A member of the RNA family "glmS glucosamine-6-phosphate activated ribozyme aptamer" from Cohnella nanjingensis, 165 nucleotides long. The match comes from Rfam's covariance-model search (84 bits). The source organism's lineage runs through Bacteria, Bacillati, Bacillota, Bacilli and Cohnella. Its family is annotated with catalytic activity and regulation of gene expression in the Gene Ontology.
RNA sequence: GAAGCACGAAAAGCGCCAGAACUUGUCGCCUGACAUGGGGCAAGUUGACGAGGUGGAGGUGUUCGGAAAUGUUCGGCGGGGACCUCCCGGCCCGCAUCGGGGCCGACAGCCGGAAGACAAAGCGUUCAGGGCAACCGAGCGUACAAUAUUCCGGUACGGUGCAGA
Numbered sequence: 001g002a003a004g005c006a007c008g009a010a011a012a013g014c015g016c017c018a019g020a021a022c023u024u025g026u027c028g029c030c031u032g033a034c035a036u037g038g039g040g041c042a043a044g045u046u047g048a049c050g051a052g053g054u055g056g057a058g059g060u061g062u063u064c065g066g067a068a069a070u071g072u073u074c075g076g077c078g079g080g081g082a083c084c085u086c087c088c089g090g091c092c093c094g095c096a097u098c099g100g101g102g103c104c105g106a107c108a109g110c111c112g113g114a115a116g117a118c119a120a121a122g123c124g125u126u127c128a129g130g131g132c133a134a135c136c137g138a139g140c141g142u143a144c145a146a147u148a149u150u151c152c153g154g155u156a157c158g159g160u161g162c163a164g165a
Base pairs, nucleotide, nucleotide: 020046021045022044023043024042025041026040027039029037055087056086057085058084059083063076064075065074066073088105089104090103091102092101093100109155110154111153112152113151114150115149123141124140125139126138127137129136130135
Pairs were carried over by alignment from the consensus structure, which is taken from published work. It is annotated as a riboswitch.